[Rfam]
RNA: Alphaproteobacteria transfer-messenger RNA
Organism: Sphingomonas changnyeongensis
RNA sequence: CGGCUUCACAUCCGCGCCGGAAUGCCUAUAUCGGUCAGUGCCGGCUUGCCGGCUAUGGCGAUAAACUGCGGCGUUCAAUAGGCGCAGCGGACCCGGGGGCAGUACCCGGCGGCUCCACCAGAAACCGCGGCUUCGCGGGUCCUGACGGGGCCGAACCAGGAUCGACGUGUGUUGAAAAGCGCUGUUUUCGCCCGGAAUGGGACCACCGCAACGGCCCAUAACACAAGUGCCAACGACAACGAGGCGCUCGCUCUUGCUGCGUAACUAAGUCCCCCUGGGGAUAAGGUUACAAAGCUAUAGCGCGGUCCGGGCCGCACCGGGCAACAGAAGCGGAAUCC
Numbered sequence: 001c002g003g004c005u006u007c008a009c010a011u012c013c014g015c016g017c018c019g020g021a022a023u024g025c026c027u028a029u030a031u032c033g034g035u036c037a038g039u040g041c042c043g044g045c046u047u048g049c050c051g052g053c054u055a056u057g058g059c060g061a062u063a064a065a066c067u068g069c070g071g072c073g074u075u076c077a078a079u080a081g082g083c084g085c086a087g088c089g090g091a092c093c094c095g096g097g098g099g100c101a102g103u104a105c106c107c108g109g110c111g112g113c114u115c116c117a118c119c120a121g122a123a124a125c126c127g128c129g130g131c132u133u134c135g136c137g138g139g140u141c142c143u144g145a146c147g148g149g150g151c152c153g154a155a156c157c158a159g160g161a162u163c164g165a166c167g168u169g170u171g172u173u174g175a176a177a178a179g180c181g182c183u184g185u186u187u188u189c190g191c192c193c194g195g196a197a198u199g200g201g202a203c204c205a206c207c208g209c210a211a212c213g214g215c216c217c218a219u220a221a222c223a224c225a226a227g228u229g230c231c232a233a234c235g236a237c238a239a240c241g242a243g244g245c246g247c248u249c250g251c252u253c254u255u256g257c258u259g260c261g262u263a264a265c266u267a268a269g270u271c272c273c274c275c276u277g278g279g280g281a282u283a284a285g286g287u288u289a290c291a292a293a294g295c296u297a298u299a300g301c302g303c304g305g306u307c308c309g310g311g312c313c314g315c316a317c318c319g320g321g322c323a324a325c326a327g328a329a330g331c332g333g334a335a336u337c338c
Stems, first nucleotide, its partner, number of pairs: 040053005057192005068185007083171003087168003093109005110153007193208003198218003203214002303319004309336001312333003